RNA sequence: AGGCCUGAAGAGAGAAGCAGGGUAUGACCCAUAGCCUCCAUGGCAGCUGUUGAUCAGCCCUUGCCUCUCUCUUUCUCUGGG
Numbered sequence: 001a002g003g004c005c006u007g008a009a010g011a012g013a014g015a016a017g018c019a020g021g022g023u024a025u026g027a028c029c030c031a032u033a034g035c036c037u038c039c040a041u042g043g044c045a046g047c048u049g050u051u052g053a054u055c056a057g058c059c060c061u062u063g064c065c066u067c068u069c070u071c072u073u074u075c076u077c078u079g080g081g
Base pairs, nucleotide, nucleotide: 008073009072010071011070012069013068014067015066017064018063019062020061022059025056026055027054029052032049033048034047035046
RNA: mir-574 microRNA precursor family
Organism: Myotis brandtii